[Rfam]
This 83-nucleotide RNA belongs to the Rfam family "Group II catalytic intron D1-D4-1". Rfam's curators put it in the seed alignment. Gene Ontology term of the family: Group II intron splicing. From the family's description: Group II introns are found in rRNA, tRNA and mRNA of organelles in fungi, plants and protists, and also in mRNA in bacteria.

RNA sequence: CUACUAACAUCGGAAGGUGUUGGGAUGGGCCAUCAGAAGUCAGCCGAGGCCGUAGUAGUGCUGAAACCAACAGCAUGAAGGGC
Numbered sequence: 001c002u003a004c005u006a007a008c009a010u011c012g013g014a015a016g017g018u019g020u021u022g023g024g025a026u027g028g029g030c031c032a033u034c035a036g037a038a039g040u041c042a043g044c045c046g047a048g049g050c051c052g053u054a055g056u057a058g059u060g061c062u063g064a065a066a067c068c069a070a071c072a073g074c075a076u077g078a079a080g081g082g083c
Stems, first nucleotide, its partner, number of pairs: 001027001004023008040047002049083003058076006